Shown here is a 148-nucleotide RNA sequence from Fusibacter sp. 3D3, a member of the family "glmS glucosamine-6-phosphate activated ribozyme aptamer". A search with the family's covariance model found it, with a score of 111 bits. It is annotated as a riboswitch.

[Rfam]
RNA sequence: AACUUAAUACAAGCGCCAGAACUGUUUACAGUUGACGAGGGCGGGGUUAAUCGAAAAUUCGGCGGGUGCCCCGCGGUGUAAUCAACACCGUAAAUACCAUACAAAUUUCCAGAGUGAUUUGGAAGACAAAGUUGGUAGGUUGAUUUAA
Numbered sequence: 001a002a003c004u005u006a007a008u009a010c011a012a013g014c015g016c017c018a019g020a021a022c023u024g025u026u027u028a029c030a031g032u033u034g035a036c037g038a039g040g041g042c043g044g045g046g047u048u049a050a051u052c053g054a055a056a057a058u059u060c061g062g063c064g065g066g067u068g069c070c071c072c073g074c075g076g077u078g079u080a081a082u083c084a085a086c087a088c089c090g091u092a093a094a095u096a097c098c099a100u101a102c103a104a105a106u107u108u109c110c111a112g113a114g115u116g117a118u119u120u121g122g123a124a125g126a127c128a129a130a131g132u133u134g135g136u137a138g139g140u141u142g143a144u145u146u147a148a
Stems, first nucleotide, its partner, number of pairs: 020033005042073005051062004074090006095137005107124007
Dot-bracket structure: ...................(((((....)))))........(((((....((((....))))......)))))((((((.....))))))....(((((.......(((((((....)))))))........)))))...........